[Rfam]
RNA sequence: GUUGCACGUUCAAGGCCACAGCAGGAGUAUUCAUGGUGUGGCCAUGUCAGAUACCAAUAAAUAUGUGAAUUCUGCU
Numbered sequence: 001g002u003u004g005c006a007c008g009u010u011c012a013a014g015g016c017c018a019c020a021g022c023a024g025g026a027g028u029a030u031u032c033a034u035g036g037u038g039u040g041g042c043c044a045u046g047u048c049a050g051a052u053a054c055c056a057a058u059a060a061a062u063a064u065g066u067g068a069a070u071u072c073u074g075c076u
Base pairs, nucleotide, nucleotide: 014043015042016041017040020076021075022074023073024072025071026070027039028038029037048065049064051062052061
The record is a 76-nucleotide RNA from Alligator mississippiensis, which matches "Mammalian CPEB3 ribozyme" in Rfam. The source organism's lineage runs through Eukaryota, Bilateria, Deuterostomia, Craniata and Alligator. It scores 38 bits against the family's covariance model. Gene Ontology term of the family: RNA nuclease activity.